[Rfam]
RNA sequence: GGCAAGGUGGCCGAGCGGUCUAAGGCGCACGGUUCAGGUUAACCUGUCCAUCAGAACUUCAUCCAGAAGUUUCCGUGUCAUGAAAAUGGCGUGGGUUCGAAUCCCACCCUUGUCA
Numbered sequence: 001g002g003c004a005a006g007g008u009g010g011c012c013g014a015g016c017g018g019u020c021u022a023a024g025g026c027g028c029a030c031g032g033u034u035c036a037g038g039u040u041a042a043c044c045u046g047u048c049c050a051u052c053a054g055a056a057c058u059u060c061a062u063c064c065a066g067a068a069g070u071u072u073c074c075g076u077g078u079c080a081u082g083a084a085a086a087u088g089g090c091g092u093g094g095g096u097u098c099g100a101a102u103c104c105c106a107c108c109c110u111u112g113u114c115a
Stems, first nucleotide, its partner, number of pairs: 001114007010026003028077005091107005
RNA: tRNA